Rfam assigns this 107-nucleotide RNA sequence from Prunus avium to the family "MIR6274 microRNA precursor family". Pairs were carried over by alignment from the consensus structure, which was predicted with RNAalifold. Taxonomically the source falls in Prunus (Eukaryota, Streptophyta, Magnoliopsida, rosids).
[Rfam]
RNA sequence: GGAUAUCACUGUUUUGCUAUCCUCGACCAUUAACGCAAUGAUACGUGAAAAAGUUAUCUUACGUGUCAUUGCGUUAUUGACCAGGGAUAGCAAAAAGUGUUAUAAUC
Numbered sequence: 001g002g003a004u005a006u007c008a009c010u011g012u013u014u015u016g017c018u019a020u021c022c023u024c025g026a027c028c029a030u031u032a033a034c035g036c037a038a039u040g041a042u043a044c045g046u047g048a049a050a051a052a053g054u055u056a057u058c059u060u061a062c063g064u065g066u067c068a069u070u071g072c073g074u075u076a077u078u079g080a081c082c083a084g085g086g087a088u089a090g091c092a093a094a095a096a097g098u099g100u101u102a103u104a105a106u107c
Base pairs, nucleotide, nucleotide: 002106004104005103012095013094014093015092016091017090018089019088020087022085023084025082028079029078031076032075033074034073035072036071037070038069039068040067041066042065043064044063045062046061047060048059050057